RNA sequence: GGGAUAUGAUGAGUGGUCAAUGCUCGCAUAUAAACAUGCGAGAUGGGUGUCCAGCCCACUCCCUGGUUACGACAACAGGGCACUCCCAUCUUCACCUAUCUGAUCCC
Numbered sequence: 001g002g003g004a005u006a007u008g009a010u011g012a013g014u015g016g017u018c019a020a021u022g023c024u025c026g027c028a029u030a031u032a033a034a035c036a037u038g039c040g041a042g043a044u045g046g047g048u049g050u051c052c053a054g055c056c057c058a059c060u061c062c063c064u065g066g067u068u069a070c071g072a073c074a075a076c077a078g079g080g081c082a083c084u085c086c087c088a089u090c091u092u093c094a095c096c097u098a099u100c101u102g103a104u105c106c107c
Stems, first nucleotide, its partner, number of pairs: 001107004014098003023042005045085007063078002066076002
Dot-bracket structure: ((((.........(((......(((((..........)))))..(((((((...........((.((.......)))))))))))..........))).....))))
A member of the RNA family "Small nucleolar RNA Z279/snoR105/snoR108" from Populus trichocarpa, 107 nucleotides long. About the family: This family includes the plant snoRNAs known as Z279, snoR105 and snoR108. Rfam links the family to the GO terms nucleolus and RNA processing. It is annotated as a C/D-box small nucleolar RNA. Its Rfam clan is "snoU13 clan". Taxonomically the source falls in Populus (Eukaryota, Embryophyta, Magnoliopsida, rosids). The family has 20 seed sequences and 906 matches in Rfam 15.1.